A member of the RNA family "mir-46/mir-47/mir-281 microRNA precursor family" from Daphnia magna, 93 nucleotides long.
Lineage of the source: Eukaryota > Metazoa > Ecdysozoa > Mandibulata > Daphnia.
Gene Ontology terms of the family: miRNA-mediated post-transcriptional gene silencing and RISC complex.
A search with the family's covariance model found it, with a score of 60 bits.
The literature on the family includes a 2003 paper in Genome Biol by Lai et al., "Computational identification of Drosophila microRNA genes".
Pairs were carried over by alignment from the consensus structure, which was predicted with RNAalifold.
[Rfam]
RNA sequence: GAGCCUAAGCUACAAAGAGAGCUAUCCGUGAACAGUAUUGCUGUUUGUGCGAAAAUUCACUGUCAUGGAGCUGCUCUCUUUAUAGAACGGUUC
Numbered sequence: 001g002a003g004c005c006u007a008a009g010c011u012a013c014a015a016a017g018a019g020a021g022c023u024a025u026c027c028g029u030g031a032a033c034a035g036u037a038u039u040g041c042u043g044u045u046u047g048u049g050c051g052a053a054a055a056u057u058c059a060c061u062g063u064c065a066u067g068g069a070g071c072u073g074c075u076c077u078c079u080u081u082a083u084a085g086a087a088c089g090g091u092u093c
Base pairs, nucleotide, nucleotide: 014081015080016079017078018077020075021074022073025069026068027067028066032063033062035060036059
Dot-bracket structure: .............(((((.(((..((((...((.((......................)).))..))))...))).)))))............